[Rfam]
Nucleotides: 087
Base pairs, nucleotide, nucleotide: 002048003047004046006044007043008042021035022034023033024032026030
Number, partner (000 for none) and nucleotide at each position: 001000c002048c003047g004046a005000g006044c007043g008042a009000g010000g011000g012000g013000c014000g015000c016000u017000g018000c019000a020000g021035c022034a023033g024032g025000c026030c027000a028000a029000u030026g031000a032024c033023c034022u035021g036000u037000c038000a039000g040000g041000c042008u043007c044006g045000a046004u047003c048002g049000g050000g051000g052000c053000g054000u055000u056000u057000u058000c059000c060000c061000a062000g063000a064000a065000c066000g067000c068000a069000u070000c071000a072000a073000c074000g075000g076000c077000g078000c079000c080000c081000a082000u083000u084000c085000g086000c087000a
This 87-nucleotide RNA from Pseudomonas matsuisoli belongs to the Rfam family "SAH (S-adenosyl-L-homocysteine) riboswitch aptamer". It scores 59 bits against the family's covariance model. Lineage of the source: Bacteria > Gammaproteobacteria > Pseudomonadales > Pseudomonadaceae > Pseudomonas. Pairs were carried over by alignment from the consensus structure, which is taken from published work.